SAH (S-adenosyl-L-homocysteine) riboswitch aptamer: an 89-nucleotide sequence from Micromonospora sp. HM5-17.
[Rfam]
Nucleotides: 089
Stems, first nucleotide, its partner, number of pairs: 002049007021036006
Number, partner (000 for none) and nucleotide at each position: 001000c002049g003048g004047g005046u006045c007044g008043a009000g010000a011000g012000g013000c014000g015000c016000u017000g018000c019000a020000a021036c022035g023034g024033g025032c026031g027000a028000g029000g030000a031026c032025g033024c034023c035022c036021g037000c038000c039000a040000c041000g042000c043008u044007c045006g046005g047004c048003c049002c050000g051000a052000g053000a054000u055000u056000c057000a058000c059000c060000c061000g062000u063000u064000u065000c066000c067000g068000u069000u070000g071000g072000u073000a074000a075000g076000g077000g078000c079000g080000c081000c082000u083000c084000c085000g086000u087000u088000c089000a
For this family Rfam cites "Riboswitches that sense S-adenosylhomocysteine and activate genes involved in coenzyme recycling" (Wang et al., Mol Cell, 2008). A search with the family's covariance model found it, with a score of 37 bits.